[Rfam]
RNA: SAM riboswitch aptamer (S box leader)
RNA sequence: GGUUCAUCGAGAGUGGCGGAGGGACUGGCCCCAUGAUGCCACGGCAACCUCUCCCGCGGGGAGAACGGUGCCAAAUCCAGCGGACACUCGGUCCGAGAGAUGAAGC
Number, nucleotide and partner (000 for none) at each position: 001g106002g000003u104004u103005c102006a101007u100008c099009g000010a000011g000012a000013g042014u041015g040016g039017c038018g000019g000020a000021g031022g030023g029024a000025c080026u079027g078028g077029c023030c022031c021032c000033a000034u000035g000036a000037u000038g017039c016040c015041a014042c013043g072044g071045c070046a069047a000048c068049c067050u064051c063052u062053c061054c000055c000056g000057c000058g000059g000060g000061g053062a052063g051064a050065a000066c000067g049068g048069u046070g045071c044072c043073a000074a000075a000076u098077c028078c027079a026080g025081c095082g094083g093084a092085c091086a000087c000088u000089c000090g000091g085092u084093c083094c082095g081096a000097g000098a076099g008100a007101u006102g005103a004104a003105g000106c001